[Rfam]
mir-9261 microRNA precursor family: a 92-nucleotide RNA from Pipistrellus kuhlii.
RNA sequence: AACAAUUUGUCCCGUGUCCUGUGGCUUUUUAAAAAAGUCCUGAUUUUUCUGGACUUUUUUAAAACGCCACAGGACAUGGGACAAAUUGUUAA
Numbered sequence: 001a002a003c004a005a006u007u008u009g010u011c012c013c014g015u016g017u018c019c020u021g022u023g024g025c026u027u028u029u030u031a032a033a034a035a036a037g038u039c040c041u042g043a044u045u046u047u048u049c050u051g052g053a054c055u056u057u058u059u060u061a062a063a064a065c066g067c068c069a070c071a072g073g074a075c076a077u078g079g080g081a082c083a084a085a086u087u088g089u090u091a092a
Stems, first nucleotide, its partner, number of pairs: 001090025027064009